[Rfam]
RNA sequence: GCCGCCUUAGCUCAGUUGGUUAGAGCACUAGAUUGUGGAUCUAGGGGUCCCCCGUUCAAACCGGGGAGGCGGUA
Numbered sequence: 001g002c003c004g005c006c007u008u009a010g011c012u013c014a015g016u017u018g019g020u021u022a023g024a025g026c027a028c029u030a031g032a033u034u035g036u037g038g039a040u041c042u043a044g045g046g047g048u049c050c051c052c053c054g055u056u057c058a059a060a061c062c063g064g065g066g067a068g069g070c071g072g073u074a
Stems, first nucleotide, its partner, number of pairs: 001073007010026004028044005050066005
A member of the RNA family "tRNA" from Devosia enhydra, 74 nucleotides long. Its family is annotated with triplet codon-amino acid adaptor activity in the Gene Ontology. By type it is a transfer RNA. A search with the family's covariance model found it, with a score of 65 bits. Rfam's curators write: Transfer RNA (tRNA) molecules are approximately 80 nucleotides in length. The base pairs follow the family's consensus structure, which is taken from published work.